The family of this 265-nucleotide RNA sequence from Leptotrichia shahii is "Bacterial large signal recognition particle RNA". Taxonomically the source falls in Leptotrichia (Bacteria, Fusobacteriati, Fusobacteriales, Leptotrichiaceae). Rfam classes the family as a non-coding RNA gene.
RNA sequence: UCAUACUAGCCGGGGAGUUAGCGGUGCCCUGUAUCUACAACCCGCUUUAGUAGAGGUGACGUCAAAUUUGAGGGAAGUUUUAGUGUCAACGUCUUAUUUUAAAAGUGUUGAGAAAAUAGUCCUGUAUUGUAGAGGGCUAGCGAAAUGUGUCAGGUCGGGAACGAAGCAGCACUAAGUUAGUUUCUUUAGGUUUACAGGGUAGCUGUUUUUGAGCUUUUAGAUUAAGAAACGGAUGGUAGAAUGUUUUCGAGAAUUUGACGUAUGA
Numbered sequence: 001u002c003a004u005a006c007u008a009g010c011c012g013g014g015g016a017g018u019u020a021g022c023g024g025u026g027c028c029c030u031g032u033a034u035c036u037a038c039a040a041c042c043c044g045c046u047u048u049a050g051u052a053g054a055g056g057u058g059a060c061g062u063c064a065a066a067u068u069u070g071a072g073g074g075a076a077g078u079u080u081u082a083g084u085g086u087c088a089a090c091g092u093c094u095u096a097u098u099u100u101a102a103a104a105g106u107g108u109u110g111a112g113a114a115a116a117u118a119g120u121c122c123u124g125u126a127u128u129g130u131a132g133a134g135g136g137c138u139a140g141c142g143a144a145a146u147g148u149g150u151c152a153g154g155u156c157g158g159g160a161a162c163g164a165a166g167c168a169g170c171a172c173u174a175a176g177u178u179a180g181u182u183u184c185u186u187u188a189g190g191u192u193u194a195c196a197g198g199g200u201a202g203c204u205g206u207u208u209u210u211g212a213g214c215u216u217u218u219a220g221a222u223u224a225a226g227a228a229a230c231g232g233a234u235g236g237u238a239g240a241a242u243g244u245u246u247u248c249g250a251g252a253a254u255u256u257g258a259c260g261u262a263u264g265a
Stems, first nucleotide, its partner, number of pairs: 001265006007258001009057003012030004017025003034054005063257007072248005078241005084235004092229001094225003098221002102218002104215003112210009121198006127190002130188005136181006147172004155164003